RNA sequence: GUGCAUUCUUAAACCCUCCUGGCCGCCGCGCGCCGGCGCCUCCAGGAUACGAGUGAAUGCGAGAGCAAGUGCAGGAAGUCCAAAGGGCUGCGCGCCCUCCGUGGCUCAGCCCUAUUUCCUCCCUGCGACAGCU
Numbered sequence: 001g002u003g004c005a006u007u008c009u010u011a012a013a014c015c016c017u018c019c020u021g022g023c024c025g026c027c028g029c030g031c032g033c034c035g036g037c038g039c040c041u042c043c044a045g046g047a048u049a050c051g052a053g054u055g056a057a058u059g060c061g062a063g064a065g066c067a068a069g070u071g072c073a074g075g076a077a078g079u080c081c082a083a084a085g086g087g088c089u090g091c092g093c094g095c096c097c098u099c100c101g102u103g104g105c106u107c108a109g110c111c112c113u114a115u116u117u118c119c120u121c122c123c124u125g126c127g128a129c130a131g132c133u
Stems, first nucleotide, its partner, number of pairs: 003060004008053003017047006025039002064133003070127006084113007092105002096101001